The family of this 130-nucleotide sequence is "SAM-I/IV (S-adenosyl methionine) riboswitch aptamer". Gene Ontology terms of the family: S-adenosylmethionine metabolic process and regulation of gene expression. The literature on the family includes a 2014 paper in PNAS by Trausch et al., "Structural basis for diversity in the SAM clan of riboswitches".
[Rfam]
RNA sequence: CAGCAACAUCAGGAGUGCUCUGAGAUUAGUUUCAGAGUCGCCAACCGAGCCGAGAUAAAUUGAGGCAACGGUGGUUUGAUCCAUAAACGGUAGAUGUGCCCAGGAAAAUGGGAAUAAGAAUAAACCGCCU
Numbered sequence: 001c002a003g004c005a006a007c008a009u010c011a012g013g014a015g016u017g018c019u020c021u022g023a024g025a026u027u028a029g030u031u032u033c034a035g036a037g038u039c040g041c042c043a044a045c046c047g048a049g050c051c052g053a054g055a056u057a058a059a060u061u062g063a064g065g066c067a068a069c070g071g072u073g074g075u076u077u078g079a080u081c082c083a084u085a086a087a088c089g090g091u092a093g094a095u096g097u098g099c100c101c102a103g104g105a106a107a108a109u110g111g112g113a114a115u116a117a118g119a120a121u122a123a124a125c126c127g128c129c130u
Stems, first nucleotide, its partner, number of pairs: 006097005015039001017038009040075003045071003050064001099112004